[Rfam]
RNA sequence: UUCUUAUCCAGAGAGGUGGAGGGACUGGCCCUUUGAAGCCUCGGCAGCGGGUUUCCGGCAAACGGAAAUACUGUGCCAAUUCCGUCAAGCAGUUAGCUUGGGAGAUAAGAA
Numbered sequence: 001u002u003c004u005u006a007u008c009c010a011g012a013g014a015g016g017u018g019g020a021g022g023g024a025c026u027g028g029c030c031c032u033u034u035g036a037a038g039c040c041u042c043g044g045c046a047g048c049g050g051g052u053u054u055c056c057g058g059c060a061a062a063c064g065g066a067a068a069u070a071c072u073g074u075g076c077c078a079a080u081u082c083c084g085u086c087a088a089g090c091a092g093u094u095a096g097c098u099u100g101g102g103a104g105a106u107a108a109g110a111a
Stems, first nucleotide, its partner, number of pairs: 001111008013042005021031003026084003043077004048073002050069001052067004081103001086100005

The family of this 111-nucleotide RNA sequence from Fictibacillus enclensis is "SAM riboswitch aptamer (S box leader)". The match comes from Rfam's covariance-model search (84 bits). Taxonomically the source falls in Fictibacillus (Bacteria, Bacillati, Caryophanales, Fictibacillaceae).